This 308-nucleotide sequence from Polaribacter sp. IC066 belongs to the Rfam family "Bacterial RNase P class A". The base pairs follow the family's consensus structure, which is taken from published work. Rfam's curators write: Ribonuclease P (RNase P) is a ubiquitous endoribonuclease, found in archaea, bacteria and eukarya as well as chloroplasts and mitochondria.

RNA sequence: AAAGCAGAUUUAUCUUAUCGCCACGCUUCGGUGUGGAGGAAAGUCCGGACACCAUAGAGUACUCAUAGCGGAUAACAUCCGUCCAGCGUAAGUUGAGGACCAGUGCAACAGAAAGCAAGUACAGUUCGGCUGUAGUGAAACCAGGUAAACUCUAUGAGGUGCAAUGUCAUGUAUAUUAGAGCUUGAGGGCUACUCGCUCGAUUCUAAAGGGUAGGCAGAUAGAUUCUAAGAGCAAUUUUAGAACUAGAUAAAUGAUAAGAACCUUAAAAUUUAAGGCACAGAAUUCGGCUUACAAGUCUGCUUUUUUA
Numbered sequence: 001a002a003a004g005c006a007g008a009u010u011u012a013u014c015u016u017a018u019c020g021c022c023a024c025g026c027u028u029c030g031g032u033g034u035g036g037a038g039g040a041a042a043g044u045c046c047g048g049a050c051a052c053c054a055u056a057g058a059g060u061a062c063u064c065a066u067a068g069c070g071g072a073u074a075a076c077a078u079c080c081g082u083c084c085a086g087c088g089u090a091a092g093u094u095g096a097g098g099a100c101c102a103g104u105g106c107a108a109c110a111g112a113a114a115g116c117a118a119g120u121a122c123a124g125u126u127c128g129g130c131u132g133u134a135g136u137g138a139a140a141c142c143a144g145g146u147a148a149a150c151u152c153u154a155u156g157a158g159g160u161g162c163a164a165u166g167u168c169a170u171g172u173a174u175a176u177u178a179g180a181g182c183u184u185g186a187g188g189g190c191u192a193c194u195c196g197c198u199c200g201a202u203u204c205u206a207a208a209g210g211g212u213a214g215g216c217a218g219a220u221a222g223a224u225u226c227u228a229a230g231a232g233c234a235a236u237u238u239u240a241g242a243a244c245u246a247g248a249u250a251a252a253u254g255a256u257a258a259g260a261a262c263c264u265u266a267a268a269a270u271u272u273a274a275g276g277c278a279c280a281g282a283a284u285u286c287g288g289c290u291u292a293c294a295a296g297u298c299u300g301c302u303u304u305u306u307u308a
Stems, first nucleotide, its partner, number of pairs: 001304010013260007021036006041291003045288005050161004057195004063157005068082005083097001084095004098152002103150002105146002120134006165217004176207005187199004224243008